[Rfam]
RNA sequence: CUCCCGCAUCAAGAGUUGGGGUGGACGCCCCGACGCCAACCUGCCGAUCCGGGCAAGGUGGCGCUCCGCAAGGAGGAUGUGGCCGAUCCGGCAACCAAACGGACACGG
Numbered sequence: 001c002u003c004c005c006g007c008a009u010c011a012a013g014a015g016u017u018g019g020g021g022u023g024g025a026c027g028c029c030c031c032g033a034c035g036c037c038a039a040c041c042u043g044c045c046g047a048u049c050c051g052g053g054c055a056a057g058g059u060g061g062c063g064c065u066c067c068g069c070a071a072g073g074a075g076g077a078u079g080u081g082g083c084c085g086a087u088c089c090g091g092c093a094a095c096c097a098a099a100c101g102g103a104c105a106c107g108g
Stems, first nucleotide, its partner, number of pairs: 006080005015034001020031002035062003040058003043054003048103004082092004